[Rfam]
RNA: mir-9195 microRNA precursor family
Organism: Myotis lucifugus
RNA sequence: AGAGGCCCUCCAUGGCCAGGGUGGAAUGCUUGCCUUGUCGCCACGGUGACAAAGCAAGCAUUCUGCCAGGCCGCUCAUACUGCCUGC
Numbered sequence: 001a002g003a004g005g006c007c008c009u010c011c012a013u014g015g016c017c018a019g020g021g022u023g024g025a026a027u028g029c030u031u032g033c034c035u036u037g038u039c040g041c042c043a044c045g046g047u048g049a050c051a052a053a054g055c056a057a058g059c060a061u062u063c064u065g066c067c068a069g070g071c072c073g074c075u076c077a078u079a080c081u082g083c084c085u086g087c
Stems, first nucleotide, its partner, number of pairs: 004084003013073005020067014037050005